[Rfam]
Shown here is a 131-nucleotide RNA sequence from Salvelinus namaycush, a member of the family "Small nucleolar RNA SNORA71". About the family: The members of this family belong to the H/ACA class of snoRNAs which bind a number of proteins (including dyskerin, Gar1p and Nop10p) to form snoRNP complexes. A search with the family's covariance model found it, with a score of 74 bits. Gene Ontology terms of the family: nucleolus and RNA processing. On this family, see Ganot et al., Genes Dev 1997: "The family of box ACA small nucleolar RNAs is defined by an evolutionarily conserved secondary structure and ubiquitous sequence elements essential for RNA accumulation".
RNA sequence: CCCUGUAUCGAAAGUGGCUAUGGCUUUGAUUUAAGUGGCCAGGUCAUUGAUAGUACAGGAAAAGUGAAUUGAGGGGCUUUCCCGUGUUCGAUGGGUCCUAAGUCCCUACCGAACCCUGGUUUUCUCAGAUA
Numbered sequence: 001c002c003c004u005g006u007a008u009c010g011a012a013a014g015u016g017g018c019u020a021u022g023g024c025u026u027u028g029a030u031u032u033a034a035g036u037g038g039c040c041a042g043g044u045c046a047u048u049g050a051u052a053g054u055a056c057a058g059g060a061a062a063a064g065u066g067a068a069u070u071g072a073g074g075g076g077c078u079u080u081c082c083c084g085u086g087u088u089c090g091a092u093g094g095g096u097c098c099u100a101a102g103u104c105c106c107u108a109c110c111g112a113a114c115c116c117u118g119g120u121u122u123u124c125u126c127a128g129a130u131a
Stems, first nucleotide, its partner, number of pairs: 002059007013048007022040004070127007086114005093106003